[Rfam]
Nucleotides: 096
Base pairs, nucleotide, nucleotide: 005089006088007087008086010082011081012080013079014078015075017074018073019072020071022069023067024066025065026064027063028062029061033060035058036057037056042051043050044049
Number, partner (000 for none) and nucleotide at each position: 001000u002000a003000u004000g005089g006088g007087u008086c009000c010082u011081c012080u013079u014078g015075c016000a017074a018073c019072g020071u021000u022069u023067g024066c025065u026064u027063g028062c029061u030000c031000a032000c033060u034000u035058g036057g037056u038000c039000a040000g041000g042051u043050c044049c045000g046000g047000a048000a049044g050043g051042a052000a053000g054000c055000a056037g057036c058035c059000u060033a061029a062028g063027u064026a065025g066024g067023u068000u069022a070000u071020a072019u073018g074017u075015g076000u077000g078014u079013g080012a081011g082010a083000u084000u085000c086008g087007g088006c089005u090000g091000a092000u093000a094000g095000g096000g
Notes:
The family of this 96-nucleotide RNA sequence from Frischella perrara is "Bacterial small signal recognition particle RNA". The match comes from Rfam's covariance-model search (64 bits). Lineage of the source: Bacteria > Pseudomonadota > Gammaproteobacteria > Orbales > Frischella. Rfam classes the family as a non-coding RNA gene.